Overview
The family of this 87-nucleotide RNA from Methylosinus sp. 3S-1 is "Glycine riboswitch aptamer". The source organism's lineage runs through Bacteria, Pseudomonadati, Alphaproteobacteria, Methylocystaceae and Methylosinus.
RNA sequence: UCGAUCUUCGCGGGAGAGACCGGCACAGCCGGAGCCGAAGGCGCAACCGCCCCGGAAACGCUCAGGCAAAAGGACCGCGAAGGCGAG
Numbered sequence: 001u002c003g004a005u006c007u008u009c010g011c012g013g014g015a016g017a018g019a020c021c022g023g024c025a026c027a028g029c030c031g032g033a034g035c036c037g038a039a040g041g042c043g044c045a046a047c048c049g050c051c052c053c054g055g056a057a058a059c060g061c062u063c064a065g066g067c068a069a070a071a072g073g074a075c076c077g078c079g080a081a082g083g084c085g086a087g
Stems, first nucleotide, its partner, number of pairs: 006082008020032004034067003037063002041061003047055002

Record summary
The pairing is the family consensus, mapped onto this sequence.